[Rfam]
RNA: mir-5928 microRNA precursor family
Organism: Haemonchus placei
RNA sequence: GGCCCAAAUUUGGAGUAGGGUAGAUUAAAAAUAUCAUCUUACCCUAGUAAACUACUCUACUUCGAGUUUGUGCCC
Numbered sequence: 001g002g003c004c005c006a007a008a009u010u011u012g013g014a015g016u017a018g019g020g021u022a023g024a025u026u027a028a029a030a031a032u033a034u035c036a037u038c039u040u041a042c043c044c045u046a047g048u049a050a051a052c053u054a055c056u057c058u059a060c061u062u063c064g065a066g067u068u069u070g071u072g073c074c075c
Stems, first nucleotide, its partner, number of pairs: 001074003005070005011064013025050003030045001034041001
Dot-bracket structure: (((.(((((.(((((((((((((.(((..(...(......)...)..))).))))))))))))).))))).))).